[Rfam]
RNA sequence: UAGAUACUUUUUGGGGUAAGGGCUUCCUGACUACUGAUUAGACAAACAGCAAGCCCAGACCGCAAAAAGAUCCAG
Numbered sequence: 001u002a003g004a005u006a007c008u009u010u011u012u013g014g015g016g017u018a019a020g021g022g023c024u025u026c027c028u029g030a031c032u033a034c035u036g037a038u039u040a041g042a043c044a045a046a047c048a049g050c051a052a053g054c055c056c057a058g059a060c061c062g063c064a065a066a067a068a069g070a071u072c073c074a075g
Base pairs, nucleotide, nucleotide: 007069008068009067010066011065012064013063015061016060017059020056021055022054023053025051027049028048
Dot-bracket structure: ......(((((((.(((..((((.(.((...................)).).))))..))).)))))))......